The family of this 77-nucleotide sequence from Crocodylus porosus is "Mammalian CPEB3 ribozyme".

RNA sequence: UGUUGCAAGUACAAGGCCAUAGCAGAAGUACUCGCAAUGGAGCCCUGUCAGAUUCCAACAAAUCUGCAAAUUCUGCC
Numbered sequence: 001u002g003u004u005g006c007a008a009g010u011a012c013a014a015g016g017c018c019a020u021a022g023c024a025g026a027a028g029u030a031c032u033c034g035c036a037a038u039g040g041a042g043c044c045c046u047g048u049c050a051g052a053u054u055c056c057a058a059c060a061a062a063u064c065u066g067c068a069a070a071u072u073c074u075g076c077c
Base pairs, nucleotide, nucleotide: 015044016043017042022076023075024074025073026072027071029039030038049066050065051064052063053062054061

Rfam links the family to the GO term RNA nuclease activity. The family's consensus secondary structure is taken from published work. The source organism's lineage runs through Eukaryota, Sauropsida, Archelosauria, Longirostres and Crocodylus.